This 76-nucleotide RNA belongs to the Rfam family "DUF3085 RNA".
It is one of the family's seed sequences.
The base pairs follow the family's consensus structure, which is taken from published work.

RNA sequence: CGGUAGCUGGACUAAACCGGGUCGAAAGACCGAACCCAGCCUUCAACGCCCAUCCAGGGCACAUCAACCCCGCGGG
Numbered sequence: 001c002g003g004u005a006g007c008u009g010g011a012c013u014a015a016a017c018c019g020g021g022u023c024g025a026a027a028g029a030c031c032g033a034a035c036c037c038a039g040c041c042u043u044c045a046a047c048g049c050c051c052a053u054c055c056a057g058g059g060c061a062c063a064u065c066a067a068c069c070c071c072g073c074g075g076g
Base pairs, nucleotide, nucleotide: 001019002018003017004016006040007039008038009037010036020031021030022029023028048060049059050058051057